RNA sequence: UUGGUUUGUCCUAAGUCAAACAUCUUUGAGUUUGACAAGGUCUAUAGAAAAAUAUUUCAACAUCUACAACAUCAGCUGUAUAUAGUAUGAAAAUACAUUUUAUGAUGAAUCUAAUGACACUAAUUUGAUGUUCUAGAUGUUAGUAUAUUUUCUAUAGGCUUGGUCAAGCUUAAAGAUGUUUGACUUAAGAGGACAAACCUAG
Number, nucleotide and partner (000 for none) at each position: 001u000002u000003g000004g000005u197006u196007u195008g194009u193010c000011c191012u187013a186014a185015g184016u183017c182018a181019a180020a179021c178022a177023u176024c175025u174026u173027u000028g000029a000030g000031u168032u167033u166034g165035a164036c000037a000038a000039g000040g000041u000042c000043u000044a000045u154046a153047g152048a151049a150050a149051a148052a000053u000054a000055u145056u000057u143058c000059a141060a140061c139062a138063u137064c136065u135066a134067c000068a132069a000070c000071a000072u128073c127074a126075g125076c000077u123078g000079u000080a000081u000082a000083u000084a000085g000086u000087a000088u000089g000090a000091a000092a000093a000094u000095a000096c000097a000098u000099u000100u000101u000102a000103u000104g000105a000106u000107g000108a000109a000110u000111c000112u000113a000114a000115u000116g000117a000118c000119a000120c000121u000122a000123a077124u000125u075126u074127g073128a072129u000130g000131u000132u068133c000134u066135a065136g064137a063138u062139g061140u060141u059142a000143g057144u000145a055146u000147a000148u051149u050150u049151u048152c047153u046154a045155u000156a000157g000158g000159c000160u000161u000162g000163g000164u035165c034166a033167a032168g031169c000170u000171u000172a000173a026174a025175g024176a023177u022178g021179u020180u019181u018182g017183a016184c015185u014186u013187a012188a000189g000190a000191g011192g000193a009194c008195a007196a006197a005198c000199c000200u000201a000202g000